[Rfam]
RNA: Small nucleolar RNA snR37
Organism: Saccharomyces uvarum
RNA sequence: AACAUCAGUAGUGGUUAAUACUAUCUUUUGAUAAUAUUAAUUUCAUUAUACCAUAGAAACCUAAAGAUUGAAUAAUUUUUGUUCUUCAUGUUAUACAACUUGGGCAAUGAAGAGCUUGCUCUUUUGCGUCCAUUUUGUUUAAUAAGUUAAUACUGGAACAAGAAUAAUUUAAAUCAUUUCAUACAACCCAUAGCUGAAUGAAUUUUGACCACUCCUAAACAAAGUAGCUACAAUUUUCAUUUCGUUUUCCGGUUUUCUUAGAUCAAAUAUUAUUUUUGAAGAAGGUUUCCCUGAUUACAAAUCAGGGAAAGGUUCGCGUUUUAGAGAAUUGCAUAAUGCAUUU
Numbered sequence: 001a002a003c004a005u006c007a008g009u010a011g012u013g014g015u016u017a018a019u020a021c022u023a024u025c026u027u028u029u030g031a032u033a034a035u036a037u038u039a040a041u042u043u044c045a046u047u048a049u050a051c052c053a054u055a056g057a058a059a060c061c062u063a064a065a066g067a068u069u070g071a072a073u074a075a076u077u078u079u080u081g082u083u084c085u086u087c088a089u090g091u092u093a094u095a096c097a098a099c100u101u102g103g104g105c106a107a108u109g110a111a112g113a114g115c116u117u118g119c120u121c122u123u124u125u126g127c128g129u130c131c132a133u134u135u136u137g138u139u140u141a142a143u144a145a146g147u148u149a150a151u152a153c154u155g156g157a158a159c160a161a162g163a164a165u166a167a168u169u170u171a172a173a174u175c176a177u178u179u180c181a182u183a184c185a186a187c188c189c190a191u192a193g194c195u196g197a198a199u200g201a202a203u204u205u206u207g208a209c210c211a212c213u214c215c216u217a218a219a220c221a222a223a224g225u226a227g228c229u230a231c232a233a234u235u236u237u238c239a240u241u242u243c244g245u246u247u248u249c250c251g252g253u254u255u256u257c258u259u260a261g262a263u264c265a266a267a268u269a270u271u272a273u274u275u276u277u278g279a280a281g282a283a284g285g286u287u288u289c290c291c292u293g294a295u296u297a298c299a300a301a302u303c304a305g306g307g308a309a310a311g312g313u314u315c316g317c318g319u320u321u322u323a324g325a326g327a328a329u330u331g332c333a334u335a336a337u338g339c340a341u342u343u
Base pairs, nucleotide, nucleotide: 008049009048010047011046012045013044014041015040016039017038018037019036020035022033023032024031025030055258056257057256058255059254061252066175067174068173069172070170071169072168073167075165076164077163078162079161080160081159082158083157084156085155089144090143091142092141093140095138097136098135101132102131103130104129105128109124110123111122112121113120114119145154146153147152196242197241198240199239200238201237202236205233206232207231209227211225212224213223270336271335272334273333287309288308289307290306291305292304293303294302295301311330312329313328314327315326317324